RNA sequence: ACCCCCUGGCAAUGGGCAAAAAGACACCUGAUUGGUGGUGGUGCUCUUGUAUCAGUCAGGGGCAAAGCAGAUGUCUAGUCCUUUCUUCAUCGUAGCUUGAUGCCUGGGUUGGUGGCCAGAGCUGUUUCAUGAAUGGGGCACAUUA
Numbered sequence: 001a002c003c004c005c006c007u008g009g010c011a012a013u014g015g016g017c018a019a020a021a022a023g024a025c026a027c028c029u030g031a032u033u034g035g036u037g038g039u040g041g042u043g044c045u046c047u048u049g050u051a052u053c054a055g056u057c058a059g060g061g062g063c064a065a066a067g068c069a070g071a072u073g074u075c076u077a078g079u080c081c082u083u084u085c086u087u088c089a090u091c092g093u094a095g096c097u098u099g100a101u102g103c104c105u106g107g108g109u110u111g112g113u114g115g116c117c118a119g120a121g122c123u124g125u126u127u128c129a130u131g132a133a134u135g136g137g138g139c140a141c142a143u144u145a
Stems, first nucleotide, its partner, number of pairs: 003062006013054003019048002023042001025040004084140001086138003101131001105129003110124002113121001
This 145-nucleotide RNA sequence from Lipotes vexillifer belongs to the Rfam family "Small nucleolar RNA SNORA48".
Taxonomically the source falls in Lipotes (Eukaryota, Opisthokonta, Bilateria, Odontoceti).
Gene Ontology terms of the family: RNA processing and nucleolus.
On this family, see Ofengand and Bakin, J Mol Biol 1997: "Mapping to nucleotide resolution of pseudouridine residues in large subunit ribosomal RNAs from representative eukaryotes, prokaryotes, archaebacteria, mitochondria and chloroplasts".
Rfam describes the family as follows. The snoRNA ACA 48 has been identified to guide pseudouridylation of the residue U3797 in the 28S rRNA subunit.